The record is a 99-nucleotide RNA sequence from Paenibacillus whitsoniae, which matches "Purine riboswitch aptamer" in Rfam.
RNA sequence: UUUACCCUAAGAGUAUCUUUUCGUAUAACCUUAAUAAUUGGAUUAAGGGUCUCUACUGGAAACCGUAAAUUUCUAGCUACGAAAAAUGUGCCCGGCCCU
Numbered sequence: 001u002u003u004a005c006c007c008u009a010a011g012a013g014u015a016u017c018u019u020u021u022c023g024u025a026u027a028a029c030c031u032u033a034a035u036a037a038u039u040g041g042a043u044u045a046a047g048g049g050u051c052u053c054u055a056c057u058g059g060a061a062a063c064c065g066u067a068a069a070u071u072u073c074u075a076g077c078u079a080c081g082a083a084a085a086a087u088g089u090g091c092c093c094g095g096c097c098c099u
Base pairs, nucleotide, nucleotide: 018085019084020083021082022081023080024079025078029048030047031046032045033044034043035042057075058074059073060072061071062070
The source organism's lineage runs through Bacteria, Bacillati, Bacillota, Paenibacillaceae and Paenibacillus.